Rfam assigns this 83-nucleotide RNA sequence from Marchantia polymorpha to the family "Small nucleolar RNA SNORD24".
A reference for the family is Qu et al. (1995), "U24, a novel intron-encoded small nucleolar RNA with two 12 nt long, phylogenetically conserved complementarities to 28S rRNA", Nucleic Acids Res.
A search with the family's covariance model found it, with a score of 60 bits.
It is annotated as a C/D-box small nucleolar RNA.

[Rfam]
RNA sequence: GGCCAGUGAUGCAAACAAUAUUUGCUACUCUUGAUGGCUUCGCCAGCUGACGACAAACAAUAAUCACCAAGAUCUUUGAGGCC
Numbered sequence: 001g002g003c004c005a006g007u008g009a010u011g012c013a014a015a016c017a018a019u020a021u022u023u024g025c026u027a028c029u030c031u032u033g034a035u036g037g038c039u040u041c042g043c044c045a046g047c048u049g050a051c052g053a054c055a056a057a058c059a060a061u062a063a064u065c066a067c068c069a070a071g072a073u074c075u076u077u078g079a080g081g082c083c
Base pairs, nucleotide, nucleotide: 001083002082003081004080